Source information: This 67-nucleotide sequence from Corynebacterium sp. KPL1855 belongs to the Rfam family "L31-Corynebacteriaceae ribosomal protein leader". Lineage of the source: Bacteria > Bacillati > Mycobacteriales > Corynebacteriaceae > Corynebacterium. By type it is a cis-regulatory leader. The literature on the family includes a 2020 paper in BMC Microbiol by Eckert and Weinberg, "Discovery of 20 novel ribosomal leader candidates in bacteria and archaea".
RNA sequence: ACUCGGGCACGAUCCGUACCGGCAUAAUUCAGUGUGCGGAACCGACCCGUAGUCCAACCCUGAGGGA
Numbered sequence: 001a002c003u004c005g006g007g008c009a010c011g012a013u014c015c016g017u018a019c020c021g022g023c024a025u026a027a028u029u030c031a032g033u034g035u036g037c038g039g040a041a042c043c044g045a046c047c048c049g050u051a052g053u054c055c056a057a058c059c060c061u062g063a064g065g066g067a
Base pairs, nucleotide, nucleotide: 001053002052003051004049005048006047007046013040014039015038016037017036018035019034